[Rfam]
RNA: Bacterial small signal recognition particle RNA
RNA sequence: GGCCAGGUGCCAUGCAUGGGCAGGCGCGUGAACUCCGCCAGGACCGGAAGGUAGCAACGGCAACGACGUCCUCCUAGUGCCGUGGAGUGCCUGGCCACU
Numbered sequence: 001g002g003c004c005a006g007g008u009g010c011c012a013u014g015c016a017u018g019g020g021c022a023g024g025c026g027c028g029u030g031a032a033c034u035c036c037g038c039c040a041g042g043a044c045c046g047g048a049a050g051g052u053a054g055c056a057a058c059g060g061c062a063a064c065g066a067c068g069u070c071c072u073c074c075u076a077g078u079g080c081c082g083u084g085g086a087g088u089g090c091c092u093g094g095c096c097a098c099u
Stems, first nucleotide, its partner, number of pairs: 004093005010085005015077001017076004027065003035060003043052003